The record is an 82-nucleotide RNA sequence from Mycobacterium spongiae, which matches "Actinobacteria sRNA Ms_AS-4" in Rfam.
RNA sequence: CUUGGCAUCGGUGUAGCGAUUCGGGUCGUCCCCGAACUCACCGAGCACCCGGGCGCCGAGUACAGCACCGAGUCCUGGCAGG
Numbered sequence: 001c002u003u004g005g006c007a008u009c010g011g012u013g014u015a016g017c018g019a020u021u022c023g024g025g026u027c028g029u030c031c032c033c034g035a036a037c038u039c040a041c042c043g044a045g046c047a048c049c050c051g052g053g054c055g056c057c058g059a060g061u062a063c064a065g066c067a068c069c070g071a072g073u074c075c076u077g078g079c080a081g082g
Base pairs, nucleotide, nucleotide: 008044009043010042011041012040013039018038020036021035022034023033024032025031055079056078057077059076060075062073063072
The pairing is the family consensus, mapped onto this sequence. Rfam classes the family as a small RNA. The source organism's lineage runs through Bacteria, Actinomycetes, Mycobacteriales, Mycobacteriaceae and Mycobacterium.